Source information:
The record is a 288-nucleotide sequence from Oreochromis aureus, which matches "Nuclear RNase P" in Rfam. A search with the family's covariance model found it, with a score of 214 bits. Rfam classes the family as a ribozyme. Rfam links the family to the GO terms ribonuclease P activity, ribonuclease P complex and tRNA processing.
RNA sequence: GUGGGAGGAAGCUCAUUGAAGAGGUCACGUGCCGAGUGCUUGCCACUCUACCAAUCACCUUGGGGAAGGUCUGAGACAAGAGCCAAUCGUUGCCCUUGCAGGGCAUCACCUGAAUGCGGGUGAGCGAGUGAACAGAAAGUAUGGGUCAAUAAGAGCAGGUGUAGCAGGAGAAGCCGGUUGGUGGAUGUGUCUCUCUGAUGACUUGGAAGCGCUCGCGGCUGGCGAUUGAGUUCGAUGAAUGAGGUGGGGCACAUCUCCAGAACCCAAUUCAGACUACUCUCCCCCCAC
Numbered sequence: 001g002u003g004g005g006a007g008g009a010a011g012c013u014c015a016u017u018g019a020a021g022a023g024g025u026c027a028c029g030u031g032c033c034g035a036g037u038g039c040u041u042g043c044c045a046c047u048c049u050a051c052c053a054a055u056c057a058c059c060u061u062g063g064g065g066a067a068g069g070u071c072u073g074a075g076a077c078a079a080g081a082g083c084c085a086a087u088c089g090u091u092g093c094c095c096u097u098g099c100a101g102g103g104c105a106u107c108a109c110c111u112g113a114a115u116g117c118g119g120g121u122g123a124g125c126g127a128g129u130g131a132a133c134a135g136a137a138a139g140u141a142u143g144g145g146u147c148a149a150u151a152a153g154a155g156c157a158g159g160u161g162u163a164g165c166a167g168g169a170g171a172a173g174c175c176g177g178u179u180g181g182u183g184g185a186u187g188u189g190u191c192u193c194u195c196u197g198a199u200g201a202c203u204u205g206g207a208a209g210c211g212c213u214c215g216c217g218g219c220u221g222g223c224g225a226u227u228g229a230g231u232u233c234g235a236u237g238a239a240u241g242a243g244g245u246g247g248g249g250c251a252c253a254u255c256u257c258c259a260g261a262a263c264c265c266a267a268u269u270c271a272g273a274c275u276a277c278u279c280u281c282c283c284c285c286c287a288c
Stems, first nucleotide, its partner, number of pairs: 001288004007282003012243006021061004034048005071272005081220004091105005106123006124216007145202003245259005